RNA sequence: CUCUUAUCAAGAGAGGCGGAGGGACUGGCCCGAUGAAGCCCGGCAACCCCGUACAUAUGUACGGAUAAGGUGCCAAUUCCAGCAGGACGGAUGAGCGUUCUGGGAGAUAAGGG
Numbered sequence: 001c002u003c004u005u006a007u008c009a010a011g012a013g014a015g016g017c018g019g020a021g022g023g024a025c026u027g028g029c030c031c032g033a034u035g036a037a038g039c040c041c042g043g044c045a046a047c048c049c050c051g052u053a054c055a056u057a058u059g060u061a062c063g064g065a066u067a068a069g070g071u072g073c074c075a076a077u078u079c080c081a082g083c084a085g086g087a088c089g090g091a092u093g094a095g096c097g098u099u100c101u102g103g104g105a106g107a108u109a110a111g112g113g
Base pairs, nucleotide, nucleotide: 001113002112003111004110005109006108007107008106013041015040016039017038021031022030023029025082026081027080028079042074043073044072045071047070048069049064050063051062052061078105083102084101085100086099087098088097
This 113-nucleotide RNA from Aneurinibacillus migulanus belongs to the Rfam family "SAM riboswitch aptamer (S box leader)". The organism belongs to Aneurinibacillus, within Bacteria.